This 29-nucleotide sequence belongs to the Rfam family "L31-Firmicutes ribosomal protein leader". Rfam classes the family as a cis-regulatory leader.
RNA sequence: CUAUGACAAAAAUGUCAUGGCGGAAGGAG
Numbered sequence: 001c002u003a004u005g006a007c008a009a010a011a012a013u014g015u016c017a018u019g020g021c022g023g024a025a026g027g028a029g
Stems, first nucleotide, its partner, number of pairs: 001020008